[Rfam]
RNA sequence: AGAGGUCCUAAGCUUGAGGCCACAGUAGAAGCAUUCAUAAUGUGGAUCUAUCAGAUUCCAGUGAAUCUGUGAAUUCUGCU
Numbered sequence: 001a002g003a004g005g006u007c008c009u010a011a012g013c014u015u016g017a018g019g020c021c022a023c024a025g026u027a028g029a030a031g032c033a034u035u036c037a038u039a040a041u042g043u044g045g046a047u048c049u050a051u052c053a054g055a056u057u058c059c060a061g062u063g064a065a066u067c068u069g070u071g072a073a074u075u076c077u078g079c080u
Base pairs, nucleotide, nucleotide: 016048017047020045021044024080025079026078027077028076029075030074031043032042033041052069053068054067055066056065057064058063
Dot-bracket structure: ...............[[..[[..((((((((((.......)))]].]]...(((((((....)))))))....)))))))